[Rfam]
RNA sequence: CCACGAAAGACAGUGAUGCUUCCCUUCCAAGCACAUAUCUGACACAGCAUGCUGUGGAAUAUCACAAGUUCUGAGUCUUUCGUCU
Numbered sequence: 001c002c003a004c005g006a007a008a009g010a011c012a013g014u015g016a017u018g019c020u021u022c023c024c025u026u027c028c029a030a031g032c033a034c035a036u037a038u039c040u041g042a043c044a045c046a047g048c049a050u051g052c053u054g055u056g057g058a059a060u061a062u063c064a065c066a067a068g069u070u071c072u073g074a075g076u077c078u079u080u081c082g083u084c085u
Base pairs, nucleotide, nucleotide: 003083004082005081006080008078009077010076011075
The record is an 85-nucleotide RNA sequence from Salvator merianae, which matches "Small nucleolar RNA SNORD121A" in Rfam.
The base pairs follow the family's consensus structure, which was predicted with WAR.
The family has 26 seed sequences and 881 matches in Rfam 15.1.
It is annotated as a C/D-box small nucleolar RNA.
For this family Rfam cites "snoSeeker: an advanced computational package for screening of guide and orphan snoRNA genes in the human genome" (Yang et al., Nucleic Acids Res, 2006).
A search with the family's covariance model found it, with a score of 51 bits.